The record is a 117-nucleotide RNA sequence from Gracilibacillus thailandensis, which matches "Group II catalytic intron D1-D4-4" in Rfam.
A reference for the family is Bonen and Vogel (2001), "The ins and outs of group II introns", Trends Genet.

RNA sequence: UUGUUGGUGAAAGUCCAAUCCAAGUAAGGGCCAAGUCGCUUGGUAGCUGACAGGUAACUGGUAGAGAAAUCUUAAGGUUAGAGCCCUGUAUCAGCAAACUAACAGAUCGUAACAUAA
Numbered sequence: 001u002u003g004u005u006g007g008u009g010a011a012a013g014u015c016c017a018a019u020c021c022a023a024g025u026a027a028g029g030g031c032c033a034a035g036u037c038g039c040u041u042g043g044u045a046g047c048u049g050a051c052a053g054g055u056a057a058c059u060g061g062u063a064g065a066g067a068a069a070u071c072u073u074a075a076g077g078u079u080a081g082a083g084c085c086c087u088g089u090a091u092c093a094g095c096a097a098a099c100u101a102a103c104a105g106a107u108c109g110u111a112a113c114a115u116a117a
Stems, first nucleotide, its partner, number of pairs: 020043005050089005055080005064071002094110002
Rfam links the family to the GO term Group II intron splicing. It scores 77 bits against the family's covariance model. The family has 90 seed sequences and 840 matches in Rfam 15.1. Rfam's curators write: Group II introns are found in rRNA, tRNA and mRNA of organelles in fungi, plants and protists, and also in mRNA in bacteria.